[Rfam]
RNA sequence: UCCCCCACAGUCCUCCGGUCCUCGUUUCUCGCAAGGGAUCCUAUCGUAGGCACCCGCAUCAUUUGGUUACCCUUCCAUAUGCCGCUCUCGAGCCUGUAACAGGACCUCGUGAAUGCCGCAGCCGGAUUACGGUGGGUAGCGCAUCCUGUAUAGGACGUACCAAGCGGGCGGGUGAACGAGGCUCGGAACUUAACCCUAAGAAGAUAU
Numbered sequence: 001u002c003c004c005c006c007a008c009a010g011u012c013c014u015c016c017g018g019u020c021c022u023c024g025u026u027u028c029u030c031g032c033a034a035g036g037g038a039u040c041c042u043a044u045c046g047u048a049g050g051c052a053c054c055c056g057c058a059u060c061a062u063u064u065g066g067u068u069a070c071c072c073u074u075c076c077a078u079a080u081g082c083c084g085c086u087c088u089c090g091a092g093c094c095u096g097u098a099a100c101a102g103g104a105c106c107u108c109g110u111g112a113a114u115g116c117c118g119c120a121g122c123c124g125g126a127u128u129a130c131g132g133u134g135g136g137u138a139g140c141g142c143a144u145c146c147u148g149u150a151u152a153g154g155a156c157g158u159a160c161c162a163a164g165c166g167g168g169c170g171g172g173u174g175a176a177c178g179a180g181g182c183u184c185g186g187a188a189c190u191u192a193a194c195c196c197u198a199a200g201a202a203g204a205u206a207u
Stems, first nucleotide, its partner, number of pairs: 009190003015186004
The family of this 207-nucleotide part of an RNA from Fusarium odoratissimum is "Ascomycota telomerase RNA". A search with the family's covariance model found it, with a score of 355 bits. NCBI's taxonomy places the organism under Eukaryota, Ascomycota, leotiomyceta, Nectriaceae, Fusarium oxysporum species complex.